[Rfam]
RNA: Fumarate/nitrate reductase regulator sRNA
Organism: Winslowiella iniecta
RNA sequence: GCAGGUGAAUGCAACGUCAAGCGAUGGGCGUUGCGCUCCAUAUUGUCUUACUUCCUUUUUCGAAUUGAUGCAUAGCACAAUUUAAUUCGUACGACGCCGGCUGAUUGCCGGCUUUU
Numbered sequence: 001g002c003a004g005g006u007g008a009a010u011g012c013a014a015c016g017u018c019a020a021g022c023g024a025u026g027g028g029c030g031u032u033g034c035g036c037u038c039c040a041u042a043u044u045g046u047c048u049u050a051c052u053u054c055c056u057u058u059u060u061c062g063a064a065u066u067g068a069u070g071c072a073u074a075g076c077a078c079a080a081u082u083u084a085a086u087u088c089g090u091a092c093g094a095c096g097c098c099g100g101c102u103g104a105u106u107g108c109c110g111g112c113u114u115u116u
Base pairs, nucleotide, nucleotide: 001046002045003044004043007038008037010035011034012033013032014031015030016029017028018027062088063087064086065085066084067083069077070076071075096112097111098110099109100108101107